glmS glucosamine-6-phosphate activated ribozyme aptamer: a 164-nucleotide RNA sequence from Terrilactibacillus tamarindi. The literature on the family includes a 2004 paper in Nature by Winkler et al., "Control of gene expression by a natural metabolite-responsive ribozyme". Rfam classes the family as a riboswitch. The family's consensus secondary structure is taken from published work. The match comes from Rfam's covariance-model search (112 bits). Its family is annotated with regulation of gene expression and catalytic activity in the Gene Ontology.

RNA sequence: AGUUCAUAUUAAGCGCCAGAACUGUUUCAGAUCGGAAAGGAAACAGUUGACGAGGAAGAGGUUUAUCGAGCGUUCGGCGGAUACCUCUCGGGAUACUCACACCCGAUAGUCUUAUACAAACCAGAAGGGCGACCUUUUGUACAAAGGUAAGACGUGAGAUUGAU
Numbered sequence: 001a002g003u004u005c006a007u008a009u010u011a012a013g014c015g016c017c018a019g020a021a022c023u024g025u026u027u028c029a030g031a032u033c034g035g036a037a038a039g040g041a042a043a044c045a046g047u048u049g050a051c052g053a054g055g056a057a058g059a060g061g062u063u064u065a066u067c068g069a070g071c072g073u074u075c076g077g078c079g080g081a082u083a084c085c086u087c088u089c090g091g092g093a094u095a096c097u098c099a100c101a102c103c104c105g106a107u108a109g110u111c112u113u114a115u116a117c118a119a120a121c122c123a124g125a126a127g128g129g130c131g132a133c134c135u136u137u138u139g140u141a142c143a144a145a146g147g148u149a150a151g152a153c154g155u156g157a158g159a160u161u162g163a164u
Base pairs, nucleotide, nucleotide: 020048021047022046023045024044025043026042027041057088058087059086060085061084066077067076068075069074089105090104091103092102109153110152111151112150113149114148122139123138124137125136126135127134128133
This entry contains a glucosamine-6-phosphate activated ribozyme that is found in the mRNA for GlmS. GlmS is an enzyme that uses fructose-6-phosphate and glutamine to generate glucosamine-6-phosphate. The ribozyme catalyses self cleavage of the glmS mRNA that is thought to regulate GlmS activity.